[Rfam]
RNA sequence: AUAAAUCUUCAGGGCAGGGUGUAAUUCCCUACCGGCGGUAUAGCCCGCGAGCUGCUUGCAGCAUGAUUCGGUGAAACUCCGAGGCCGACAGUAUAGUCUGGAUGAAAGAAGAUAAUA
Numbered sequence: 001a002u003a004a005a006u007c008u009u010c011a012g013g014g015c016a017g018g019g020u021g022u023a024a025u026u027c028c029c030u031a032c033c034g035g036c037g038g039u040a041u042a043g044c045c046c047g048c049g050a051g052c053u054g055c056u057u058g059c060a061g062c063a064u065g066a067u068u069c070g071g072u073g074a075a076a077c078u079c080c081g082a083g084g085c086c087g088a089c090a091g092u093a094u095a096g097u098c099u100g101g102a103u104g105a106a107a108g109a110a111g112a113u114a115a116u117a
Base pairs, nucleotide, nucleotide: 005113006112007111008110009109010108017029018028019027031097032096033087034086035048036047037046038045043085044084067083068082069081070080071079089100090099091098
The family of this 117-nucleotide RNA from Lactococcus lactis is "FMN riboswitch aptamer (RFN element)".
Rfam's curators put it in the seed alignment.